[Rfam]
Overview:
The record is a 287-nucleotide RNA sequence from Molossus molossus, which matches "Mason-Pfizer monkey virus packaging signal" in Rfam. The family's consensus secondary structure was predicted with PFOLD.

RNA sequence: UGGCGUCCAACGUGGGGCUCCAGCACGGGGGAUCCAGUGAAGGACGCCGUUCGAGUGGGCGGCAGAAAGAAAAGCAAAGGAAAAGAAGAUAAAGGAAAAGAGGGAACGACGUGGGAACCUGCUACGUCUGCACCCCUCAGGUAAGUGAACGGCAAUUAUGGAUCAAGCAUUGAGCCAAGAUAAGAUGUUCGUUGAAGGACUAGGAAAGGCUAUCAAGGCACGAGGAGUAAAGGUGAACAUUAAGCAUUUGUGUCAGUAUUUUGAUUAUAUUAAAGAAGUUUGUCCUU
Number, nucleotide and partner (000 for none) at each position: 001u000002g000003g000004c000005g000006u031007c030008c029009a000010a000011c000012g026013u025014g024015g000016g000017g000018c000019u000020c000021c000022a000023g000024c014025a013026c012027g000028g000029g008030g007031g006032a000033u000034c000035c057036a056037g000038u054039g000040a000041a000042g000043g000044a000045c000046g000047c000048c000049g000050u000051u000052c000053g000054a038055g000056u036057g035058g000059g000060c000061g000062g000063c000064a000065g000066a000067a000068a000069g000070a000071a000072a000073a000074g000075c000076a000077a000078a000079g000080g000081a000082a000083a000084a000085g000086a000087a000088g000089a000090u000091a000092a000093a000094g000095g000096a000097a000098a000099a000100g138101a137102g135103g134104g000105a000106a000107c130108g000109a000110c126111g125112u124113g123114g122115g000116a000117a000118c000119c000120u000121g000122c114123u113124a112125c111126g110127u000128c000129u000130g107131c000132a000133c000134c103135c102136c000137u101138c100139a000140g000141g000142u000143a000144a000145g000146u165147g164148a163149a000150c000151g000152g000153c160154a159155a000156u000157u000158a000159u154160g153161g000162a000163u148164c147165a146166a000167g000168c000169a000170u000171u000172g213173a000174g210175c209176c208177a000178a000179g000180a000181u000182a000183a000184g000185a000186u000187g000188u000189u000190c000191g000192u000193u000194g000195a000196a000197g000198g000199a000200c000201u000202a000203g000204g000205a000206a000207a000208g176209g175210c174211u000212a000213u172214c000215a000216a000217g000218g000219c000220a000221c263222g262223a261224g260225g259226a000227g257228u256229a000230a000231a249232g248233g247234u246235g245236a000237a000238c000239a000240u000241u000242a000243a000244g000245c235246a234247u233248u232249u231250g000251u000252g000253u000254c000255a000256g228257u227258a000259u225260u224261u223262u222263g221264a000265u000266u000267a000268u000269a000270u000271u000272a287273a286274a000275g284276a283277a000278g000279u000280u000281u000282g000283u276284c275285c000286u273287u272